[Rfam]
RNA sequence: CAAUACCUAUAAGCAUACACUCGUAUAAUCUUGGAAAUAGGGUCCAAGAGUUUCUACCAAACUACCGUAAAUAGUUGGACUACGAGAGUUGAACAUUUUUAU
Number, nucleotide and partner (000 for none) at each position: 001c000002a000003a000004u000005a000006c000007c000008u000009a000010u000011a000012a000013g000014c000015a000016u000017a000018c088019a000020c086021u085022c084023g083024u082025a081026u000027a000028a000029u049030c048031u047032u046033g045034g044035a043036a000037a000038u000039a000040g000041g000042g000043u035044c034045c033046a032047a031048g030049a029050g000051u000052u000053u000054c000055u000056a000057c000058c078059a000060a076061a075062c074063u073064a072065c000066c000067g000068u000069a000070a000071a000072u064073a063074g062075u061076u060077g000078g058079a000080c000081u025082a024083c023084g022085a021086g020087a000088g018089u000090u000091g000092a000093a000094c000095a000096u000097u000098u000099u000100u000101a000102u000
Overview:
Purine riboswitch aptamer: a 102-nucleotide RNA sequence from Priestia veravalensis. Rfam links the family to the GO term purine nucleobase biosynthetic process. The source organism's lineage runs through Bacteria, Bacilli, Caryophanales, Bacillaceae and Priestia. Rfam's curators write: Riboswitches are metabolite binding domains within certain messenger RNAs that serve as precision sensors for their corresponding targets. Allosteric rearrangement of mRNA structure is mediated by ligand binding, and this results in modulation of gene expression. A class of riboswitches that selectively recognises guanine and becomes saturated at concentrations as low as 5 nM. In Bacillus subtilis, this mRNA motif is located on at least five separate transcriptional units that together encode 17 genes that are mostly involved in purine transport and purine nucleotide biosynthesis. It has also been shown that some members of this family are specific for adenine instead.